[Rfam]
Annotation
A member of the RNA family "glmS glucosamine-6-phosphate activated ribozyme aptamer" from Paenisporosarcina antarctica, 174 nucleotides long. Its family is annotated with regulation of gene expression and catalytic activity in the Gene Ontology. The base pairs follow the family's consensus structure, which is taken from published work. Lineage of the source: Bacteria > Bacillati > Bacillota > Caryophanales > Paenisporosarcina.
RNA sequence: AAGAUAAUGAUAGCGCCCGAGCUGAAGAAAUCACAAGCAAACUGAUCUUUAGCAGACGAGGAGGAGGAGUAUCGAACAUUCGGCGGAUACCUCCCGGCCGCGAUGCCCGGUCGUAAUUCUUUUUCUUAACCCACAGAAGUGAUUUUGUGAUUAAAGGAAAAAGAGGGCACACGA
Dot-bracket structure: ....................((((((((.................)))))))).........(((((....((((....))))......)))))((((((.......))))))....(((((((.......(((((((....)))))))........)))))))..........